The record is a 100-nucleotide sequence from Methanosalsum zhilinae, which matches "Pyrrolysine insertion sequence 1" in Rfam.
Taxonomically the source falls in Methanosalsum zhilinae (Archaea, Methanomicrobia, Methanosarcinales, Methanosarcinaceae).
The family's RNA type in Rfam is cis-regulatory element.
On this family, see Theobald-Dietrich et al., Biochimie 2005: "Evidence for the existence in mRNAs of a hairpin element responsible for ribosome dependent pyrrolysine insertion into proteins".
Its family is annotated with pyrrolysine incorporation in the Gene Ontology.

[Rfam]
RNA sequence: UAGGGUCCUGAGACUUCACUGACUGCCCAGGGUAACAUCGCUGCCGAUGCACCUGGUGGCAUGAACUCAAAUGAUAGUCAUGAAGUCUCUCAGCUAAACG
Numbered sequence: 001u002a003g004g005g006u007c008c009u010g011a012g013a014c015u016u017c018a019c020u021g022a023c024u025g026c027c028c029a030g031g032g033u034a035a036c037a038u039c040g041c042u043g044c045c046g047a048u049g050c051a052c053c054u055g056g057u058g059g060c061a062u063g064a065a066c067u068c069a070a071a072u073g074a075u076a077g078u079c080a081u082g083a084a085g086u087c088u089c090u091c092a093g094c095u096a097a098a099c100g
Stems, first nucleotide, its partner, number of pairs: 010089008040060007